[Rfam]
RNA sequence: GGUUGAACAAAUUCAGUUUUGUUUCAAGAGCGUUUGAAUUUCUGGGGUGGGAAAUU
Numbered sequence: 001g002g003u004u005g006a007a008c009a010a011a012u013u014c015a016g017u018u019u020u021g022u023u024u025c026a027a028g029a030g031c032g033u034u035u036g037a038a039u040u041u042c043u044g045g046g047g048u049g050g051g052a053a054a055u056u
Stems, first nucleotide, its partner, number of pairs: 003027003006023006037056007

The family of this 56-nucleotide RNA sequence from Clostridium sp. CT7 is "Na+ riboswitch aptamer (DUF1646)". Lineage of the source: Bacteria > Bacillati > Clostridia > Eubacteriales > Clostridium. Rfam links the family to the GO terms sodium ion binding and regulation of gene expression. A reference for the family is White et al. (2022), "Na(+) riboswitches regulate genes for diverse physiological processes in bacteria", Nat Chem Biol.